[Rfam]
RNA sequence: UGGCAAUGUCUCCUUGCCGUUAUCGAUGGAGGCACUCGAUCAUGCUGUGGGCGUAUUGCCUUAGACACAUUUGUUGUCGUUGGUAUGAUGUGAGGGGGGGUUAAAUGCCUC
Numbered sequence: 001u002g003g004c005a006a007u008g009u010c011u012c013c014u015u016g017c018c019g020u021u022a023u024c025g026a027u028g029g030a031g032g033c034a035c036u037c038g039a040u041c042a043u044g045c046u047g048u049g050g051g052c053g054u055a056u057u058g059c060c061u062u063a064g065a066c067a068c069a070u071u072u073g074u075u076g077u078c079g080u081u082g083g084u085a086u087g088a089u090g091u092g093a094g095g096g097g098g099g100g101u102u103a104a105a106u107g108c109c110u111c
Stems, first nucleotide, its partner, number of pairs: 001019004007034007035094004039089008049061005064078004097111005
This 111-nucleotide sequence from Halalkalibacter suaedae belongs to the Rfam family "epsC RNA". A search with the family's covariance model found it, with a score of 99 bits. NCBI's taxonomy places the organism under Bacteria, Bacillati, Bacilli, Caryophanales, Halalkalibacter.